[Rfam]
RNA: Enterococcus sRNA 64
RNA sequence: UACAGUACUGUAAUCUUACAGAUUACAGUACUGACUGUAAUCUUACAGAUUACAGUACUGUAUGUGU
Numbered sequence: 001u002a003c004a005g006u007a008c009u010g011u012a013a014u015c016u017u018a019c020a021g022a023u024u025a026c027a028g029u030a031c032u033g034a035c036u037g038u039a040a041u042c043u044u045a046c047a048g049a050u051u052a053c054a055g056u057a058c059u060g061u062a063u064g065u066g067u
Stems, first nucleotide, its partner, number of pairs: 002061015021042006028035002